Overview
The record is a 143-nucleotide RNA sequence from Hazenella coriacea, which matches "FMN riboswitch aptamer (RFN element)" in Rfam.

[Rfam]
RNA sequence: AACAUCCUUCGGGGCUGGGUGAAAAUCCCGACCGGCGGUGAUGGUCAGUGCUUAAGCUUGACCUCAGUCCGUGACCCGCGUAAGCGGUGGAUUCGGUGCAACUCCGAAGCCGACAGUGAAAGUCUGGAUGGGAGAAGGAUGGA
Numbered sequence: 001a002a003c004a005u006c007c008u009u010c011g012g013g014g015c016u017g018g019g020u021g022a023a024a025a026u027c028c029c030g031a032c033c034g035g036c037g038g039u040g041a042u043g044g045u046c047a048g049u050g051c052u053u054a055a056g057c058u059u060g061a062c063c064u065c066a067g068u069c070c071g072u073g074a075c076c077c078g079c080g081u082a083a084g085c086g087g088u089g090g091a092u093u094c095g096g097u098g099c100a101a102c103u104c105c106g107a108a109g110c111c112g113a114c115a116g117u118g119a120a121a122g123u124c125u126g127g128a129u130g131g132g133a134g135a136a137g138g139a140u141g142g143a
Base pairs, nucleotide, nucleotide: 003141004140005139006138007137008136009135010134017029018028019027031123032122033112034111035072036071037070038069067110068109076087077086092108093107094106095105096104114126115125116124
It scores 108 bits against the family's covariance model. The organism belongs to Hazenella, within Bacteria.